[Rfam]
RNA sequence: CUGCCCUACGCACGAGUUCCACUAAUCAAGUUUUGAGCGGAUUCGAAAGUCGAAAACUUGACACGUUGAGCUCGUCCGUGGGGCGG
Numbered sequence: 001c002u003g004c005c006c007u008a009c010g011c012a013c014g015a016g017u018u019c020c021a022c023u024a025a026u027c028a029a030g031u032u033u034u035g036a037g038c039g040g041a042u043u044c045g046a047a048a049g050u051c052g053a054a055a056a057c058u059u060g061a062c063a064c065g066u067u068g069a070g071c072u073c074g075u076c077c078g079u080g081g082g083g084c085g086g
Base pairs, nucleotide, nucleotide: 001086002085003084004083005082006081007080008079009078010077012075013074014073015072016071017070018069019068021066022065027060028059029058030057031056032055033054034053